[Rfam]
RNA sequence: GGGUGUCGCGGCGAUGGAUGUCCGCCGGGAUCAUGUUGACUAUCCGAACCGCCCACACGGGAUGAUGACUCCUACCGAAUG
Numbered sequence: 001g002g003g004u005g006u007c008g009c010g011g012c013g014a015u016g017g018a019u020g021u022c023c024g025c026c027g028g029g030a031u032c033a034u035g036u037u038g039a040c041u042a043u044c045c046g047a048a049c050c051g052c053c054c055a056c057a058c059g060g061g062a063u064g065a066u067g068a069c070u071c072c073u074a075c076c077g078a079a080u081g
Base pairs, nucleotide, nucleotide: 010026011025012024013023016072017071018070020069021068022067052061053060054059
Shown here is an 81-nucleotide RNA from Mycobacterium pseudokansasii, a member of the family "Fluoride riboswitch aptamer (crcB RNA motif)".
The match comes from Rfam's covariance-model search (41 bits).
Pairs were carried over by alignment from the consensus structure, which is taken from published work.
NCBI's taxonomy places the organism under Bacteria, Bacillati, Actinomycetes, Mycobacteriales, Mycobacterium.